[Rfam]
RNA: Proteobacterial sRNA psRNA2
Organism: Burkholderia plantarii
RNA sequence: GGGUGACUCCUUGGCGCUUGCGCGCUGUUUUGAUGAAGAUUCGCACCUCUAUCAAAACGGGUAACCCAACCUCUUGGCAAGGCCCUACUGUCAGAUCAAGUCUGAACUUCUACAUCUUAUAUAUUGAAAUUGUAAGCACCCGCUUCUGUCGGAUCUUCCAGUCUCACGAUUUGAUACGAUUGCCAAUCUCGGACAGUCU
Numbered sequence: 001g002g003g004u005g006a007c008u009c010c011u012u013g014g015c016g017c018u019u020g021c022g023c024g025c026u027g028u029u030u031u032g033a034u035g036a037a038g039a040u041u042c043g044c045a046c047c048u049c050u051a052u053c054a055a056a057a058c059g060g061g062u063a064a065c066c067c068a069a070c071c072u073c074u075u076g077g078c079a080a081g082g083c084c085c086u087a088c089u090g091u092c093a094g095a096u097c098a099a100g101u102c103u104g105a106a107c108u109u110c111u112a113c114a115u116c117u118u119a120u121a122u123a124u125u126g127a128a129a130u131u132g133u134a135a136g137c138a139c140c141c142g143c144u145u146c147u148g149u150c151g152g153a154u155c156u157u158c159c160a161g162u163c164u165c166a167c168g169a170u171u172u173g174a175u176a177c178g179a180u181u182g183c184c185a186a187u188c189u190c191g192g193a194c195a196g197u198c199u
Base pairs, nucleotide, nucleotide: 001067002066003065004064006062007061009060010059014025015024016023017022027058028057029056030055031054032053033052034051035050037048038047075148076147077146081141082140086138090107091106092104093103094102095101096100109135111134112133114130168199178198179197180196181195182194183192184191